[Rfam]
RNA: 7SK RNA
Organism: Heliornis fulica
RNA sequence: GGAUGUGAGGCGACCUGGCUGUGACAUCUGUCACCCUGUUGAUCACCAGGGUCGAUUCAGCUAAUCUGUCUGGCUAGGCAGGUGUCCCCUUCCUCCCUCGUGGCUCCAUGGGUGUCCCUCCUGAAGCUACACGCUCGGUUGAAGAGGAUGACCUUCCCUGAUAGAGACGCUCCAUGGUCAAGGGUGUAUGGUUGCUGCGCUCCCCUGCUAGAGCCUCCAUUCUGUGAAGAACAACUCCUUGGGAUGACUGAAAUGGAAGCAGGAUGCAAUCCAGAUGACUUCAGCUUUGGGACUUGGAGAAGGAAGCUCUCCUGGCU
Numbered sequence: 001g002g003a004u005g006u007g008a009g010g011c012g013a014c015c016u017g018g019c020u021g022u023g024a025c026a027u028c029u030g031u032c033a034c035c036c037u038g039u040u041g042a043u044c045a046c047c048a049g050g051g052u053c054g055a056u057u058c059a060g061c062u063a064a065u066c067u068g069u070c071u072g073g074c075u076a077g078g079c080a081g082g083u084g085u086c087c088c089c090u091u092c093c094u095c096c097c098u099c100g101u102g103g104c105u106c107c108a109u110g111g112g113u114g115u116c117c118c119u120c121c122u123g124a125a126g127c128u129a130c131a132c133g134c135u136c137g138g139u140u141g142a143a144g145a146g147g148a149u150g151a152c153c154u155u156c157c158c159u160g161a162u163a164g165a166g167a168c169g170c171u172c173c174a175u176g177g178u179c180a181a182g183g184g185u186g187u188a189u190g191g192u193u194g195c196u197g198c199g200c201u202c203c204c205c206u207g208c209u210a211g212a213g214c215c216u217c218c219a220u221u222c223u224g225u226g227a228a229g230a231a232c233a234a235c236u237c238c239u240u241g242g243g244a245u246g247a248c249u250g251a252a253a254u255g256g257a258a259g260c261a262g263g264a265u266g267c268a269a270u271c272c273a274g275a276u277g278a279c280u281u282c283a284g285c286u287u288u289g290g291g292a293c294u295u296g297g298a299g300a301a302g303g304a305a306g307c308u309c310u311c312c313u314g315g316c317u
Stems, first nucleotide, its partner, number of pairs: 001107003005101006012092002017089002023086010034073002037068002041066003046060001116169001118166003121138004126134002139161003146157003204263005216257006287315005292308001293306003